Shown here is a 110-nucleotide RNA sequence from Anolis carolinensis, a member of the family "Small nucleolar RNA SNORD89". Pairs were carried over by alignment from the consensus structure, which was predicted with RNAalifold. The family has 18 seed sequences and 642 matches in Rfam 15.1. Rfam describes the family as follows. snoRNA HBII-289 belongs to the family of C/D snoRNAs. It is the human orthologue of the mouse MBII-289 and has no identified RNA target. Rfam links the family to the GO terms nucleolus and RNA processing.
RNA sequence: GCUGAGGAAUGAUGACAAUAAAAGGCCGAAUUGCAGUGCCUGUGAACAGUUUCUCUCUAAAGGCAUGAUGACAAAACUCCUUGAAGCGACUUUUUUUGUCUGACCUCAGC
Dot-bracket structure: (((((((......(((........((......))((.(.((.(.((..((.(((......))).))(..(......)..))).).).)....).)).)))...)))))))